[Rfam]
RNA sequence: AGUCACAAAUAAAAGGCCAUAGCAGAAAUGUUCAUAGUGCUACCCUCUCAGAUUCCAGUAAAUCUGUGAAUUCUGCU
Numbered sequence: 001a002g003u004c005a006c007a008a009a010u011a012a013a014a015g016g017c018c019a020u021a022g023c024a025g026a027a028a029u030g031u032u033c034a035u036a037g038u039g040c041u042a043c044c045c046u047c048u049c050a051g052a053u054u055c056c057a058g059u060a061a062a063u064c065u066g067u068g069a070a071u072u073c074u075g076c077u
Stems, first nucleotide, its partner, number of pairs: 015044002021077007029039002049066006